This 173-nucleotide RNA sequence from Lachnospira eligens belongs to the Rfam family "Lysine riboswitch aptamer".
NCBI's taxonomy places the organism under Bacteria, Bacillati, Lachnospiraceae, Lachnospira, Lachnospira eligens.
A search with the family's covariance model found it, with a score of 104 bits.

Nucleotides: 173
Base pairs, nucleotide, nucleotide: 006168007167008166009165010164011163017084018083019082020081023078024077025076033069034068035067036066037065038064039063040062088115089114091111092110093109094108095107096106097105098104116142117141119139120138121137122136123135124134125133126132144158145157146156147155148154
Number, partner (000 for none) and nucleotide at each position: 001000a002000c003000a004000g005000c006168a007167g008166g009165u010164a011163g012000a013000g014000g015000u016000c017084g018083c019082a020081c021000g022000a023078u024077u025076c026000a027000a028000g029000a030000g031000u032000a033069a034068u035067u036066a037065u038064c039063c040062u041000g042000a043000u044000g045000u046000c047000c048000c049000g050000g051000a052000a053000g054000a055000c056000a057000u058000a059000u060000g061000a062040a063039g064038g065037a066036u067035a068034g069033u070000a071000a072000a073000a074000g075000g076025g077024g078023a079000a080000a081020g082019u083018g084017c085000c086000g087000a088115a089114g090000a091111g092110g093109a094108u095107u096106g097105u098104u099000u100000c101000c102000g103000g104098a105097g106096c107095a108094g109093u110092c111091u112000u113000a114089c115088u116142g117141g118000g119139c120138g121137u122136a123135g124134g125133a126132u127000u128000a129000a130000u131000a132126g133125u134124u135123u136122u137121a138120c139119g140000a141117c142116u143000g144158u145157c146156a147155u148154c149000g150000a151000a152000u153000a154148g155147a156146u157145g158144g159000a160000g161000a162000g163011c164010u165009a166008c167007u168006u169000a170000a171000a172000g173000g